[Rfam]
RNA sequence: AUAUGAUGAUGAUAAAGAAGCAACAGAGCUGGUAUUGCUUUACAAACAGCUUUGACCAGUGUAUGACGAUUUAAUCUUCUCUCUGAAUAU
Numbered sequence: 001a002u003a004u005g006a007u008g009a010u011g012a013u014a015a016a017g018a019a020g021c022a023a024c025a026g027a028g029c030u031g032g033u034a035u036u037g038c039u040u041u042a043c044a045a046a047c048a049g050c051u052u053u054g055a056c057c058a059g060u061g062u063a064u065g066a067c068g069a070u071u072u073a074a075u076c077u078u079c080u081c082u083c084u085g086a087a088u089a090u
Base pairs, nucleotide, nucleotide: 003088004087037050038049039048
Z30 small nucleolar RNA: a 90-nucleotide sequence from Bugula neritina. On this family, see Galardi et al., Mol Cell Biol 2002: "Purified box C/D snoRNPs are able to reproduce site-specific 2'-O-methylation of target RNA in vitro". Rfam classes the family as a C/D-box small nucleolar RNA. The family has 20 seed sequences and 802 matches in Rfam 15.1. Rfam links the family to the GO terms nucleolus and RNA processing.